[Rfam]
The family of this 91-nucleotide RNA from Electrophorus electricus is "Small nucleolar RNA SNORD70". A search with the family's covariance model found it, with a score of 58 bits. It is annotated as a C/D-box small nucleolar RNA. A reference for the family is Huttenhofer et al. (2001), "RNomics: an experimental approach that identifies 201 candidates for novel, small, non-messenger RNAs in mouse", EMBO J. The source organism's lineage runs through Eukaryota, Actinopteri, Neopterygii, Gymnotidae and Electrophorus.

RNA sequence: UGUGCUGUUGUCAAUGAUGCAUCUGUCUGUCCGACUGUAGUAUGAGGCAACUAAGCAGUUAAUUCGUCACUACCACUGAGACAACAGCUGU
Numbered sequence: 001u002g003u004g005c006u007g008u009u010g011u012c013a014a015u016g017a018u019g020c021a022u023c024u025g026u027c028u029g030u031c032c033g034a035c036u037g038u039a040g041u042a043u044g045a046g047g048c049a050a051c052u053a054a055g056c057a058g059u060u061a062a063u064u065c066g067u068c069a070c071u072a073c074c075a076c077u078g079a080g081a082c083a084a085c086a087g088c089u090g091u
Base pairs, nucleotide, nucleotide: 004088005087006086007085008084009083010082011081012080
About the family: snoRNA HBII-234 belongs to the C/D family of snoRNAs.